[Rfam]
Rfam assigns this 96-nucleotide RNA sequence from Haloactinopolyspora alba to the family "Glycine riboswitch aptamer".

RNA sequence: CGACUCUGGCCGGGAGAGUCUUCGUACGCGGGUACGAAGCGCCGAAGGGGCAACUUCCCCGUCAACCUCUCAGGCACCCAGGACCGGUCGGGCGAG
Numbered sequence: 001c002g003a004c005u006c007u008g009g010c011c012g013g014g015a016g017a018g019u020c021u022u023c024g025u026a027c028g029c030g031g032g033u034a035c036g037a038a039g040c041g042c043c044g045a046a047g048g049g050g051c052a053a054c055u056u057c058c059c060c061g062u063c064a065a066c067c068u069c070u071c072a073g074g075c076a077c078c079c080a081g082g083a084c085c086g087g088u089c090g091g092g093c094g095a096g
Base pairs, nucleotide, nucleotide: 006091007090008089009088010087011086012085013084020039021038022037023036024035025034026033027032041075042074043073044071045070048069049068050067055061